This 222-nucleotide RNA sequence from Anaplasma phagocytophilum belongs to the Rfam family "permuted transfer-messenger RNA".
RNA sequence: GGCAAUAAAAGUUACUUGGAAUAGACGUUUUGGACCCGAGGGCAGUGCUCGGCAUCUCCACGUGUUUGCGGGGAUGAGACAGGUUAGACAGGCGUAGUAAAGAAGCUGGCUGUUGCUCGGUGGGAAUUCCAGCCGUAUAAUUGGGUCAUAUUUAUAAGUGCAAACGAUGAUUUCGUUGCCGCUAAUGACAACGUGGAAACAGCUUUCGUAGCUGCAGCCUAG
Numbered sequence: 001g002g003c004a005a006u007a008a009a010a011g012u013u014a015c016u017u018g019g020a021a022u023a024g025a026c027g028u029u030u031u032g033g034a035c036c037c038g039a040g041g042g043c044a045g046u047g048c049u050c051g052g053c054a055u056c057u058c059c060a061c062g063u064g065u066u067u068g069c070g071g072g073g074a075u076g077a078g079a080c081a082g083g084u085u086a087g088a089c090a091g092g093c094g095u096a097g098u099a100a101a102g103a104a105g106c107u108g109g110c111u112g113u114u115g116c117u118c119g120g121u122g123g124g125a126a127u128u129c130c131a132g133c134c135g136u137a138u139a140a141u142u143g144g145g146u147c148a149u150a151u152u153u154a155u156a157a158g159u160g161c162a163a164a165c166g167a168u169g170a171u172u173u174c175g176u177u178g179c180c181g182c183u184a185a186u187g188a189c190a191a192c193g194u195g196g197a198a199a200c201a202g203c204u205u206u207c208g209u210a211g212c213u214g215c216a217g218c219c220u221a222g
Base pairs, nucleotide, nucleotide: 001117002116003115004114005113015105016104017103026094027093028092030091031090032089036052037051038050039049040048053076054075055074056073057072058071059070118135119134120133121132
The family's RNA type in Rfam is non-coding RNA gene. A search with the family's covariance model found it, with a score of 107 bits.